Description: This 49-nucleotide sequence belongs to the Rfam family "DUF3800-XI RNA". From the family's description: Actinobacteria, Firmicutes, Proteobacteria, Spirochaetes (1 example).
RNA sequence: UGAGGCUGGUCGUAAGACCCUGGUCCACUGAACGGCGGGGGAAUCCCCC
Numbered sequence: 001u002g003a004g005g006c007u008g009g010u011c012g013u014a015a016g017a018c019c020c021u022g023g024u025c026c027a028c029u030g031a032a033c034g035g036c037g038g039g040g041g042a043a044u045c046c047c048c049c
Stems, first nucleotide, its partner, number of pairs: 001027002004025004008019004